The record is a 94-nucleotide RNA sequence from Paenibacillus tyrphae, which matches "c-di-GMP-I riboswitch aptamer" in Rfam. Taxonomically the source falls in Paenibacillus (Bacteria, Bacillati, Caryophanales, Paenibacillaceae).
[Rfam]
RNA sequence: ACAUGAAAAAGGCAAACUAUUCGAAAGAAUAGGACGCAAAACUAGAGGGGCUAAGGCUGCUAUCCUAUAGCGGCUACGCCAGCCAGCUACCUGU
Numbered sequence: 001a002c003a004u005g006a007a008a009a010a011g012g013c014a015a016a017c018u019a020u021u022c023g024a025a026a027g028a029a030u031a032g033g034a035c036g037c038a039a040a041a042c043u044a045g046a047g048g049g050g051c052u053a054a055g056g057c058u059g060c061u062a063u064c065c066u067a068u069a070g071c072g073g074c075u076a077c078g079c080c081a082g083c084c085a086g087c088u089a090c091c092u093g094u
Stems, first nucleotide, its partner, number of pairs: 012037002017032006040088001042086002047084002049080003056074007